Shown here is an 89-nucleotide sequence from Simplicispira sp. 125, a member of the family "Burkholderia RNA 7 (anti-hemB)". A search with the family's covariance model found it, with a score of 55 bits. The family has 26 seed sequences and 479 matches in Rfam 15.1. The literature on the family includes a 2007 paper in Nucleic Acids Res by Weinberg et al., "Identification of 22 candidate structured RNAs in bacteria using the CMfinder comparative genomics pipeline". About the family: This RNA motif was identified by computational search in b-proteobacteria Burkholderia. Lineage of the source: Bacteria > Pseudomonadati > Burkholderiales > Comamonadaceae > Simplicispira.
RNA sequence: CCCCCGCUUUUUCCUCCCUGAGCGGGGCCUGGAGGCGCAAACCGCCCCCAGGCUUUCCUGGCCCGGCAUAGCCUGCCGGGCUUUUUUUG
Numbered sequence: 001c002c003c004c005c006g007c008u009u010u011u012u013c014c015u016c017c018c019u020g021a022g023c024g025g026g027g028c029c030u031g032g033a034g035g036c037g038c039a040a041a042c043c044g045c046c047c048c049c050a051g052g053c054u055u056u057c058c059u060g061g062c063c064c065g066g067c068a069u070a071g072c073c074u075g076c077c078g079g080g081c082u083u084u085u086u087u088u089g
Base pairs, nucleotide, nucleotide: 003026004025005024006023007022008021027053028052029051030050031049032048061081062080063079064078065077066076067075068074